[Rfam]
RNA: permuted transfer-messenger RNA
Nucleotides: 209
Base pairs, nucleotide, nucleotide: 001133002132003131004130005129014123016121017120026111027110028109030108031107032106036052037051038050039049040048053093054092055091056090057089058088059087134150135149136148
Number, partner (000 for none) and nucleotide at each position: 001133g002132a003131c004130a005129c006000u007000a008000a009000a010000c011000c012000u013000c014123a015000c016121g017120c018000g019000g020000a021000a022000u023000a024000a025000g026111c027110g028109u029000u030108g031107c032106g033000g034000a035000c036052c037051c038050g039049g040048g041000g042000g043000c044000g045000g046000u047000a048040c049039c050038c051037g052036g053093c054092g055091c056090c057089u058088c059087c060000a061000c062000c063000a064000u065000u066000u067000c068000c069000g070000g071000c072000u073000u074000u075000c076000g077000g078000g079000c080000g081000g082000g083000a084000u085000c086000u087059g088058g089057g090056g091055g092054c093053g094000a095000a096000a097000u098000a099000g100000g101000a102000u103000c104000g105000a106032c107031g108030u109028g110027c111026g112000u113000g114000g115000u116000a117000a118000a119000g120017g121016c122000c123014u124000g125000a126000g127000c128000u129005g130004u131003g132002u133001u134150c135149g136148g137000c138000a139000u140000g141000g142000u143000a144000c145000c146000c147000a148136c149135c150134g151000u152000u153000a154000u155000c156000g157000g158000g159000c160000c161000a162000a163000c164000u165000c166000u167000g168000a169000c170000a171000a172000g173000u174000g175000c176000c177000a178000a179000c180000g181000a182000c183000a184000a185000c186000g187000u188000u189000g190000a191000a192000c193000u194000u195000g196000c197000c198000g199000c200000u201000g202000c203000g204000g205000c206000g207000u208000a209000a